[Rfam]
RNA sequence: AUCCUCGCUUAUAAGCCGGGGGACUAGCCUUUGCUGAGUUCACUAGUAAAACGCGAGGAAAAUUAUAGAGACAUCCAGACACCGAUUAUGUUGUGAUAUAUUCGGUCACUUCGUAUGUCCCACAGUU
Numbered sequence: 001a002u003c004c005u006c007g008c009u010u011a012u013a014a015g016c017c018g019g020g021g022g023a024c025u026a027g028c029c030u031u032u033g034c035u036g037a038g039u040u041c042a043c044u045a046g047u048a049a050a051a052c053g054c055g056a057g058g059a060a061a062a063u064u065a066u067a068g069a070g071a072c073a074u075c076c077a078g079a080c081a082c083c084g085a086u087u088a089u090g091u092u093g094u095g096a097u098a099u100a101u102u103c104g105g106u107c108a109c110u111u112c113g114u115a116u117g118u119c120c121c122a123c124a125g126u127u
Stems, first nucleotide, its partner, number of pairs: 002059007015047002019043001021041004025036004068121001070119005076113001078111002081106005087100005
Rfam assigns this 127-nucleotide RNA from Caenorhabditis elegans to the family "Caenorhabditis snoRNA ceN101". NCBI's taxonomy places the organism under Eukaryota, Metazoa, Bilateria, Rhabditoidea, Caenorhabditis. The literature on the family includes a 2007 paper in BMC Mol Biol by Jia et al., "Systematic identification of non-coding RNA 2,2,7-trimethylguanosine cap structures in Caenorhabditis elegans". The family's RNA type in Rfam is H/ACA-box small nucleolar RNA. Pairs were carried over by alignment from the consensus structure, which was predicted with RNAalifold.